[Rfam]
RNA sequence: GACUUAUAGGCACUGGCAGGUUAAGCCGGAAAUGGUGGAGCCACAGCGAAAGCGAGUCUGAAUAGGGCAUUUGUCAGUGUUUAUAGACCCGAACCCGGGUGAUCUAACCAUGGCCAGGAUGAAGCUUGGGUGAUACCAAGUGGAGGUCCGAACCGACUGAUGUUGAAAAAUCAGCGGAUGAGCUGUGGUUAGGGGUGAAAUGCCAAUCGAACCCGGAGCUAGCUGGUUCUCCCCGAAAUACGUUGAGGCGUAGCGUCUGGUGCUCCAGCAGGGGGGUAAAGCCACCAUUUCGGUGCGGGCUGCGAGAGCGGUACCAAAUCGAGAUGAACUCUGAAUACCCUGUGUGUAGCCAGGCAGUCAGACUGUGGGGGAUAAGCUCCAUGGUCGAGAGGGAAACAGCCCAGACCGCCAGCUAAGGCCCCUAAAUUAACACUAAGUGAUAAAGGAGGUGGGAUUGCAUAGACAGCCAGGAGGUUUGCCUAGAAGCAGCCAUCCUCAAAGGAGUGCGUAAUAGCUCACUGGUCGAGCGAUCCUGCGCCGAAAAUGAACGGGGCUAAGUGUUAUGCCGAAGCUGCGGAUUUAUGGUAGGGGAG
Numbered sequence: 001g002a003c004u005u006a007u008a009g010g011c012a013c014u015g016g017c018a019g020g021u022u023a024a025g026c027c028g029g030a031a032a033u034g035g036u037g038g039a040g041c042c043a044c045a046g047c048g049a050a051a052g053c054g055a056g057u058c059u060g061a062a063u064a065g066g067g068c069a070u071u072u073g074u075c076a077g078u079g080u081u082u083a084u085a086g087a088c089c090c091g092a093a094c095c096c097g098g099g100u101g102a103u104c105u106a107a108c109c110a111u112g113g114c115c116a117g118g119a120u121g122a123a124g125c126u127u128g129g130g131u132g133a134u135a136c137c138a139a140g141u142g143g144a145g146g147u148c149c150g151a152a153c154c155g156a157c158u159g160a161u162g163u164u165g166a167a168a169a170a171u172c173a174g175c176g177g178a179u180g181a182g183c184u185g186u187g188g189u190u191a192g193g194g195g196u197g198a199a200a201u202g203c204c205a206a207u208c209g210a211a212c213c214c215g216g217a218g219c220u221a222g223c224u225g226g227u228u229c230u231c232c233c234c235g236a237a238a239u240a241c242g243u244u245g246a247g248g249c250g251u252a253g254c255g256u257c258u259g260g261u262g263c264u265c266c267a268g269c270a271g272g273g274g275g276g277u278a279a280a281g282c283c284a285c286c287a288u289u290u291c292g293g294u295g296c297g298g299g300c301u302g303c304g305a306g307a308g309c310g311g312u313a314c315c316a317a318a319u320c321g322a323g324a325u326g327a328a329c330u331c332u333g334a335a336u337a338c339c340c341u342g343u344g345u346g347u348a349g350c351c352a353g354g355c356a357g358u359c360a361g362a363c364u365g366u367g368g369g370g371g372a373u374a375a376g377c378u379c380c381a382u383g384g385u386c387g388a389g390a391g392g393g394a395a396a397c398a399g400c401c402c403a404g405a406c407c408g409c410c411a412g413c414u415a416a417g418g419c420c421c422c423u424a425a426a427u428u429a430a431c432a433c434u435a436a437g438u439g440a441u442a443a444a445g446g447a448g449g450u451g452g453g454a455u456u457g458c459a460u461a462g463a464c465a466g467c468c469a470g471g472a473g474g475u476u477u478g479c480c481u482a483g484a485a486g487c488a489g490c491c492a493u494c495c496u497c498a499a500a501g502g503a504g505u506g507c508g509u510a511a512u513a514g515c516u517c518a519c520u521g522g523u524c525g526a527g528c529g530a531u532c533c534u535g536c537g538c539c540g541a542a543a544a545u546g547a548a549c550g551g552g553g554c555u556a557a558g559u560g561u562u563a564u565g566c567c568g569a570a571g572c573u574g575c576g577g578a579u580u581u582a583u584g585g586u587a588g589g590g591g592a593g
Stems, first nucleotide, its partner, number of pairs: 005085013019042004025036003046053002056068004088226002091223001095216006104192011115180001117149004124141006153177003157174005194204003229593006239252005254357001255355007264348001265346001268343006279332001280330002286326003290322004297315002299312005361386010391402003406577004411573003417567003426564001428563006445539002449536010466523005472496003478490002497501001502517001506515002578583001
Shown here is a 593-nucleotide part of an RNA from cyanobiont of Ornithocercus magnificus, a member of the family "Bacterial large subunit ribosomal RNA".